[Rfam]
RNA sequence: AUGAAAACUACGGGAGAGAUCUCCUAUGAGGAGGCACCGACGGGGUAAUCUAUCAGUUUGCCGCUGGUAGAGAAACUUUCAGGUACCAGGACCGUAGUUGGAUC
Dot-bracket structure: .....((((((((......((((.......)))).(((((..(((...(((((((((.....)))))))))....))))).))).......)))))))).....